Record summary:
small nucleolar RNA snoR114: an 87-nucleotide RNA sequence from Tetracentron sinense. Pairs were carried over by alignment from the consensus structure, which was predicted with RNAalifold. A search with the family's covariance model found it, with a score of 60 bits. The organism belongs to Tetracentron, within Eukaryota. Rfam 15.1 lists 1,645 matches to the family in 183 species. For this family Rfam cites "Mining small RNA sequencing data: a new approach to identify small nucleolar RNAs in Arabidopsis" (Chen and Wu, Nucleic Acids Res, 2009). Rfam links the family to the GO terms nucleolus and RNA processing.

[Rfam]
RNA sequence: GAGCUAUGACGAACUAUGCGCCACUGUGAUUAGAUAGGGUCAACUCACUAUCGCCUUCUGGGGUCGAAAGAAAGCGCAUCUGAGCUC
Numbered sequence: 001g002a003g004c005u006a007u008g009a010c011g012a013a014c015u016a017u018g019c020g021c022c023a024c025u026g027u028g029a030u031u032a033g034a035u036a037g038g039g040u041c042a043a044c045u046c047a048c049u050a051u052c053g054c055c056u057u058c059u060g061g062g063g064u065c066g067a068a069a070g071a072a073a074g075c076g077c078a079u080c081u082g083a084g085c086u087c
Stems, first nucleotide, its partner, number of pairs: 001087004